[Rfam]
RNA sequence: UGACCAUGACCAGUCAUGGAGGUGUUGACACCUCGAUGACUGGUCAUCAAGGUGUCAACACCUUGAUGACCGGUCAUGAAGGUGUUGACACCUCGAUGACCGGUCAUCAAGGUGUCAAAACCCCGAUGACCGGUCAUCGAGGUGUUGACACCUUGAUGACCGGUCAUCAAGGUGUCAACACCUUCAUGACCGGUCAUCAAGGUGUUGACACCUCCAUGACCGGUCAU
Numbered sequence: 001u002g003a004c005c006a007u008g009a010c011c012a013g014u015c016a017u018g019g020a021g022g023u024g025u026u027g028a029c030a031c032c033u034c035g036a037u038g039a040c041u042g043g044u045c046a047u048c049a050a051g052g053u054g055u056c057a058a059c060a061c062c063u064u065g066a067u068g069a070c071c072g073g074u075c076a077u078g079a080a081g082g083u084g085u086u087g088a089c090a091c092c093u094c095g096a097u098g099a100c101c102g103g104u105c106a107u108c109a110a111g112g113u114g115u116c117a118a119a120a121c122c123c124c125g126a127u128g129a130c131c132g133g134u135c136a137u138c139g140a141g142g143u144g145u146u147g148a149c150a151c152c153u154u155g156a157u158g159a160c161c162g163g164u165c166a167u168c169a170a171g172g173u174g175u176c177a178a179c180a181c182c183u184u185c186a187u188g189a190c191c192g193g194u195c196a197u198c199a200a201g202g203u204g205u206u207g208a209c210a211c212c213u214c215c216a217u218g219a220c221c222g223g224u225c226a227u
Stems, first nucleotide, its partner, number of pairs: 013037003018032002021029001038225003042071013072221005078215001080213004084146001088145001091142018147206004153200009165188003171182004